Notes:
Shown here is a 76-nucleotide sequence from Myotis lucifugus, a member of the family "mir-9229 microRNA precursor family". Taxonomically the source falls in Myotis (Eukaryota, Euteleostomi, Sarcopterygii, Yangochiroptera). Gene Ontology terms of the family: miRNA-mediated post-transcriptional gene silencing and RISC complex.
RNA sequence: GAAACACCUUUAUGGGGCAGGACUUGCUUUGGUGGGGCUUUGGUGCUCACUGAGUCUGCCCCCUGAGUGUGUCUCA
Numbered sequence: 001g002a003a004a005c006a007c008c009u010u011u012a013u014g015g016g017g018c019a020g021g022a023c024u025u026g027c028u029u030u031g032g033u034g035g036g037g038c039u040u041u042g043g044u045g046c047u048c049a050c051u052g053a054g055u056c057u058g059c060c061c062c063c064u065g066a067g068u069g070u071g072u073c074u075c076a
Stems, first nucleotide, its partner, number of pairs: 001075002004072004009067004014062006021056003029053008037044002
The family has 7 seed sequences and 27,225 matches in Rfam 15.1.